[Rfam]
This 362-nucleotide RNA from Jacana jacana belongs to the Rfam family "ncRNA Repressor of NFAT (nuclear factor of activated T cells)". For this family Rfam cites "A strategy for probing the function of noncoding RNAs finds a repressor of NFAT" (Willingham et al., Science, 2005). Pairs were carried over by alignment from the consensus structure.

RNA sequence: UGCCGCAGAGCGCUCGCACAUCCCUCCACGCGCUGUAUUAACCCAUAUAAGAACAUCUCGUUUAAUGAGGAGCGAUACAGUUACGAACUCUCUAGAGCCAUAAUUAGAGCAAACUAAUUGAAGUUGUGUUUUGACACACUUUCCAAAUUCACGGGUACUGCAUGACACAUUCACAACACUGCUGCUGCACAGCCAUGGCGACAGCAAAAUCAUUAGGCUAAUAACGCUUAUUUGCAUGCUCCUCAUGCCAGCAGCACGCUGUUAGAUACUGCUCCCACCACUGCUCGUUUACCCUGAAAGUUUCCACUGAAAGAUAUUAACAGUAAUUAUUAGUACUUUAGUGGAAUCUCUGAUGUUAAGGA
Numbered sequence: 001u002g003c004c005g006c007a008g009a010g011c012g013c014u015c016g017c018a019c020a021u022c023c024c025u026c027c028a029c030g031c032g033c034u035g036u037a038u039u040a041a042c043c044c045a046u047a048u049a050a051g052a053a054c055a056u057c058u059c060g061u062u063u064a065a066u067g068a069g070g071a072g073c074g075a076u077a078c079a080g081u082u083a084c085g086a087a088c089u090c091u092c093u094a095g096a097g098c099c100a101u102a103a104u105u106a107g108a109g110c111a112a113a114c115u116a117a118u119u120g121a122a123g124u125u126g127u128g129u130u131u132u133g134a135c136a137c138a139c140u141u142u143c144c145a146a147a148u149u150c151a152c153g154g155g156u157a158c159u160g161c162a163u164g165a166c167a168c169a170u171u172c173a174c175a176a177c178a179c180u181g182c183u184g185c186u187g188c189a190c191a192g193c194c195a196u197g198g199c200g201a202c203a204g205c206a207a208a209a210u211c212a213u214u215a216g217g218c219u220a221a222u223a224a225c226g227c228u229u230a231u232u233u234g235c236a237u238g239c240u241c242c243u244c245a246u247g248c249c250a251g252c253a254g255c256a257c258g259c260u261g262u263u264a265g266a267u268a269c270u271g272c273u274c275c276c277a278c279c280a281c282u283g284c285u286c287g288u289u290u291a292c293c294c295u296g297a298a299a300g301u302u303u304c305c306a307c308u309g310a311a312a313g314a315u316a317u318u319a320a321c322a323g324u325a326a327u328u329a330u331u332a333g334u335a336c337u338u339u340a341g342u343g344g345a346a347u348c349u350c351u352g353a354u355g356u357u358a359a360g361g362a
Stems, first nucleotide, its partner, number of pairs: 036355005043344004049338003057072003061068002077330001079328006088097003107286005120142004125138005154260002158254001183200005204248003217235002220232004